[Rfam]
RNA sequence: GGAACUUGUACACGUUGCGGUGCAACAAUGUUAAAGGA
Numbered sequence: 001g002g003a004a005c006u007u008g009u010a011c012a013c014g015u016u017g018c019g020g021u022g023c024a025a026c027a028a029u030g031u032u033a034a035a036g037g038a
Base pairs, nucleotide, nucleotide: 006030014026015025016024017023018022
This 38-nucleotide RNA from Clostridiaceae bacterium 14S0207 belongs to the Rfam family "Selenocysteine insertion sequence 4". Rfam classes the family as a cis-regulatory element. The base pairs follow the family's consensus structure, which was predicted with PFOLD. Rfam 15.1 lists 436 matches to the family in 281 species. For this family Rfam cites "Molecular analysis of the grd operon coding for genes of the glycine reductase and of the thioredoxin system from Clostridium sticklandii" (Graentzdoerffer et al., Arch Microbiol, 2001). The source organism's lineage runs through Bacteria, Bacillati, Clostridia, Eubacteriales and Clostridiaceae.